[Rfam]
RNA: mir-181 microRNA precursor family
RNA sequence: GGUUCCCGCGGGGAACAUUCAACGCUGUCGGUGAGUUUUAUGCUCUGGUCCAAACCAUCGACCGUUGACUGUACCCCGAGAGACG
Dot-bracket structure: .((((.((.......((.((((((..(((((((.((((.............))))))))))))))))).)).....)).)).)).